[Rfam]
Description:
A member of the RNA family "Rhizobiales sRNA Atu_C8" from Stappia albiluteola, 117 nucleotides long.

RNA sequence: AAUUUCAGCCAAGGUUAUUCUCGUAGUAGGAAGGCGCGCUGCCUGGACGGGGUGAUAUCCGUCCGGAAGGGUUAGCGCGCGAAUGGGCCUCCUCGGGGGCCUUUUUUAUUACCCGGA
Numbered sequence: 001a002a003u004u005u006c007a008g009c010c011a012a013g014g015u016u017a018u019u020c021u022c023g024u025a026g027u028a029g030g031a032a033g034g035c036g037c038g039c040u041g042c043c044u045g046g047a048c049g050g051g052g053u054g055a056u057a058u059c060c061g062u063c064c065g066g067a068a069g070g071g072u073u074a075g076c077g078c079g080c081g082a083a084u085g086g087g088c089c090u091c092c093u094c095g096g097g098g099g100c101c102u103u104u105u106u107u108a109u110u111a112c113c114c115g116g117a
Stems, first nucleotide, its partner, number of pairs: 009026001029113002032110001034080008045064006085102007
The family's RNA type in Rfam is small RNA. The organism belongs to Stappia, within Bacteria. The match comes from Rfam's covariance-model search (51 bits).